Fungal signal recognition particle RNA: a 268-nucleotide sequence from Talaromyces atroroseus.
It is annotated as a non-coding RNA gene.
The match comes from Rfam's covariance-model search (111 bits).

RNA sequence: UAUCUGUGACGGAUAACCCAGUGGAAGGAUGGCUGUCGGUUGGCUGCCUUGCGUAGACGGAAGUCAAUGGGUGAGCGUGUCUGUUUCGAAUCCGGGAGCGGCCGAGGCGACUCGUCGGAGAACCACGAUUUGUUGCCCAGCCCUAAGCAAUGGAGAUGAACCCCCAGGGAAGCAAUUCUGCAAGGAACUCUCCACUCUGGGAUGGCGACAGCAGACGGCACCUCCUCGUGUAAGGAAGCUGGCCAUUUGGCUGUACAACUGCAUUCUU
Numbered sequence: 001u002a003u004c005u006g007u008g009a010c011g012g013a014u015a016a017c018c019c020a021g022u023g024g025a026a027g028g029a030u031g032g033c034u035g036u037c038g039g040u041u042g043g044c045u046g047c048c049u050u051g052c053g054u055a056g057a058c059g060g061a062a063g064u065c066a067a068u069g070g071g072u073g074a075g076c077g078u079g080u081c082u083g084u085u086u087c088g089a090a091u092c093c094g095g096g097a098g099c100g101g102c103c104g105a106g107g108c109g110a111c112u113c114g115u116c117g118g119a120g121a122a123c124c125a126c127g128a129u130u131u132g133u134u135g136c137c138c139a140g141c142c143c144u145a146a147g148c149a150a151u152g153g154a155g156a157u158g159a160a161c162c163c164c165c166a167g168g169g170a171a172g173c174a175a176u177u178c179u180g181c182a183a184g185g186a187a188c189u190c191u192c193c194a195c196u197c198u199g200g201g202a203u204g205g206c207g208a209c210a211g212c213a214g215a216c217g218g219c220a221c222c223u224c225c226u227c228g229u230g231u232a233a234g235g236a237a238g239c240u241g242g243c244c245a246u247u248u249g250g251c252u253g254u255a256c257a258a259c260u261g262c263a264u265u266c267u268u
Stems, first nucleotide, its partner, number of pairs: 001015004021262004027256001029254005035248001038244008047235003052069003056065003070226001073224003077221004081214005086208003090203004095198004100142001102140001104138001106137004110130001112128004117124002143147001151194006162185002169178003
Rfam 15.1 lists 748 matches to the family in 741 species.